[Rfam]
RNA sequence: UGAGCCGGCCAGGCGGCCGCGGCCAGCGAACCCCCGGGCCCGAGCGGUCCCGGGAGGCGCUCGUCGAGGAAAGUCCGGACUCCGCUUGAGUGCACGGUGGUUGCUAACGGCAACCCGGGGCGACCCGCGGGCACAGUGCAACAGAAAGUAGACCGCCCGCCACCCCUCGGGGCGGCGGGUAAGGGUGAAAGGGUGCGGUAAGAGCGCACCGGCGGGUCACGCGAGUGGCCCGGCCAGGUAAACCCCACCGGGAGCAAGGCAUCGCCGUGCGCCGCAUCGCCGGCGCGCGGAUGGUGGGCGCGACGAGGCUGCACGCCCAGGCUCACCGGUAGCCGCUUGAGGCGGUCAGCGAUGGCCGACCCAGAUGGAUGGCCGCCCCCUCCCUUGGGGAGGGACAGAAUCCGGCUUAUCGGCCGGCUCAUUCG
Numbered sequence: 001u002g003a004g005c006c007g008g009c010c011a012g013g014c015g016g017c018c019g020c021g022g023c024c025a026g027c028g029a030a031c032c033c034c035c036g037g038g039c040c041c042g043a044g045c046g047g048u049c050c051c052g053g054g055a056g057g058c059g060c061u062c063g064u065c066g067a068g069g070a071a072a073g074u075c076c077g078g079a080c081u082c083c084g085c086u087u088g089a090g091u092g093c094a095c096g097g098u099g100g101u102u103g104c105u106a107a108c109g110g111c112a113a114c115c116c117g118g119g120g121c122g123a124c125c126c127g128c129g130g131g132c133a134c135a136g137u138g139c140a141a142c143a144g145a146a147a148g149u150a151g152a153c154c155g156c157c158c159g160c161c162a163c164c165c166c167u168c169g170g171g172g173c174g175g176c177g178g179g180u181a182a183g184g185g186u187g188a189a190a191g192g193g194u195g196c197g198g199u200a201a202g203a204g205c206g207c208a209c210c211g212g213c214g215g216g217u218c219a220c221g222c223g224a225g226u227g228g229c230c231c232g233g234c235c236a237g238g239u240a241a242a243c244c245c246c247a248c249c250g251g252g253a254g255c256a257a258g259g260c261a262u263c264g265c266c267g268u269g270c271g272c273c274g275c276a277u278c279g280c281c282g283g284c285g286c287g288c289g290g291a292u293g294g295u296g297g298g299c300g301c302g303a304c305g306a307g308g309c310u311g312c313a314c315g316c317c318c319a320g321g322c323u324c325a326c327c328g329g330u331a332g333c334c335g336c337u338u339g340a341g342g343c344g345g346u347c348a349g350c351g352a353u354g355g356c357c358g359a360c361c362c363a364g365a366u367g368g369a370u371g372g373c374c375g376c377c378c379c380c381u382c383c384c385u386u387g388g389g390g391a392g393g394g395a396c397a398g399a400a401u402c403c404g405g406c407u408u409a410u411c412g413g414c415c416g417g418c419u420c421a422u423u424c425g
Base pairs, nucleotide, nucleotide: 001421002420003419004418005417006416007415008414009413010412011410012377013376014375015374016373017372018371020066021065022064023063025061026060027059028058071408072407073406075405076404077403078402079401080254081253082252083251090314091313092312093311095250096249097248098247099246100114101113102112103111104110115129116127117126118125119124130245131244136243137242138239139238153184154183155180156179157178158177159176160175161174163172164171165170192210193209194208195207196206197205212234213232214231215230216229217228218227219226220225258334259333260332294326295325296324297323298322299321307317308316309315341360343358344357345356346355347354348353
This 425-nucleotide sequence from Corynebacterium otitidis belongs to the Rfam family "Bacterial RNase P class A". About the family: Ribonuclease P (RNase P) is a ubiquitous endoribonuclease, found in archaea, bacteria and eukarya as well as chloroplasts and mitochondria. The source organism's lineage runs through Bacteria, Actinomycetota, Actinomycetes, Corynebacterium and Corynebacterium otitidis. A search with the family's covariance model found it, with a score of 231 bits.